[Rfam]
RNA sequence: ACAAUGGGCUUCUAGGGUUCCGAUUAAGGCUGGUCAUGCCUUCAAUGUCUGGUCCGAGAGAAGCCAGCUAGUGAUAAACGCCUUGACGCGAGUUGCAGGAAUAGCUUACUAGCCACACGGCGGGAGAAAAGCCCGGGAGAG
Dot-bracket structure: ......((((((..((...((((((.((............)).)))..).)).))....)))))).(((((((.................................)))))))..(.[...(((.......))).)..]..
Shown here is a 141-nucleotide sequence from Oscillatoria sp. FACHB-1407, a member of the family "Guanidine-I riboswitch aptamer".
The pairing is the family consensus, mapped onto this sequence.
This family represents a conserved RNA structure found upstream of the ykkC and yxkD genes in Bacillus subtilis and related genes in other bacteria.
The match comes from Rfam's covariance-model search (79 bits).